[Rfam]
RNA sequence: AGUCAGUGAUGAUUUUAAAGAUAAGAGUAGUGGACAGAAACGAUUUCUGAACAAUUUUACACUGAGGCU
Dot-bracket structure: ((((.............................................................))))
Rfam assigns this 69-nucleotide RNA sequence from Sparus aurata to the family "Small nucleolar RNA SNORD75". For this family Rfam cites "Purified box C/D snoRNPs are able to reproduce site-specific 2'-O-methylation of target RNA in vitro" (Galardi et al., Mol Cell Biol, 2002). The family's consensus secondary structure was predicted with RNAalifold. Lineage of the source: Eukaryota > Eumetazoa > Gnathostomata > Neopterygii > Sparus.